The record is a 204-nucleotide sequence from Otolemur garnettii, which matches "Small nucleolar RNA SNORA73 family" in Rfam.
Clan: snR30-U17 clan.
Rfam links the family to the GO terms nucleolus and RNA processing.
Rfam classes the family as an H/ACA-box small nucleolar RNA.
About the family: U17 (SNORA73A and SNORA73B) also known as E1 belongs to the H/ACA class of small nucleolar RNAs (snoRNAs). Vertebrate U17 is intron-encoded and ranges in length from 200-230 nucleotides, longer than most snoRNAs. It is one of the most abundant snoRNAs in human cells and is essential for the cleavage of pre-rRNA within the 5' external transcribed spacer (ETS).

RNA sequence: CCAACGUGGAUAUCCUAGGAGGUCACUCUACCCAGGCUCUGUCCAAGUGGCAUAGGGGAGCAUAGGGCUCUGACCCGUGAUGUACAGUCCCUUUCCACACCGUUGGAGAUGAAGCUGGGCCUUGAGUCUGCACCUGCAUAUUCCUACGACUUCCCAGAGUCCUAUGGACAAUGACUGGGGAGAGAAACCAUGCAGGAAACAGCC
Numbered sequence: 001c002c003a004a005c006g007u008g009g010a011u012a013u014c015c016u017a018g019g020a021g022g023u024c025a026c027u028c029u030a031c032c033c034a035g036g037c038u039c040u041g042u043c044c045a046a047g048u049g050g051c052a053u054a055g056g057g058g059a060g061c062a063u064a065g066g067g068c069u070c071u072g073a074c075c076c077g078u079g080a081u082g083u084a085c086a087g088u089c090c091c092u093u094u095c096c097a098c099a100c101c102g103u104u105g106g107a108g109a110u111g112a113a114g115c116u117g118g119g120c121c122u123u124g125a126g127u128c129u130g131c132a133c134c135u136g137c138a139u140a141u142u143c144c145u146a147c148g149a150c151u152u153c154c155c156a157g158a159g160u161c162c163u164a165u166g167g168a169c170a171a172u173g174a175c176u177g178g179g180g181a182g183a184g185a186a187a188c189c190a191u192g193c194a195g196g197a198a199a200c201a202g203c204c
Base pairs, nucleotide, nucleotide: 001106002105003104004103005102006101008044009043010042011041012040014036015035016034018029019028020027021026047098048097049096050095056091057090058089059088060085062083063082064081065078133196134195135194136193137192138191139190150182151181152180153179154178155177159169160168161167162166